[Rfam]
Nucleotides: 129
Stems, first nucleotide, its partner, number of pairs: 015120001017118005023112001033093001044088003050060002067082006
Number, partner (000 for none) and nucleotide at each position: 001000u002000u003000u004000u005000c006000g007000c008000c009000u010000g011000a012000a013000u014000a015120a016000a017118a018117g019116a020115g021114g022000a023112u024000g025000a026000g027000a028000a029000c030000c031000u032000c033093c034000g035000a036000a037000a038000g039000g040000a041000g042000g043000g044088u045087u046086g047000c048000g049000c050060c051059g052000a053000g054000c055000g056000c057000a058000g059051c060050g061000a062000g063000a064000c065000a066000a067082c068081g069080u070079u071078g072077c073000g074000a075000a076000c077072g078071c079070a080069a081068c082067g083000g084000c085000c086046c087045g088044a089000a090000g091000g092000g093033g094000a095000c096000u097000u098000a099000c100000g101000c102000a103000g104000u105000a106000a107000g108000c109000c110000u111000a112023a113000u114021c115020c116019u117018c118017u119000c120015u121000c122000g123000c124000c125000g126000a127000c128000c129000a
The record is a 129-nucleotide RNA from Pantoea ananatis, which matches "RtT RNA" in Rfam. A search with the family's covariance model found it, with a score of 68 bits. By type it is a cis-regulatory element. This family represents a bacterial cis-regulatory element known as RtT RNA. The exact function of RtT is unknown although it is thought that it may be involved in changing the cellular response in relation to amino acid starvation. The family's consensus secondary structure is taken from published work. The family has 57 seed sequences and 651 matches in Rfam 15.1. A reference for the family is Bosl and Kersten (1991), "A novel RNA product of the tyrT operon of Escherichia coli", Nucleic Acids Res.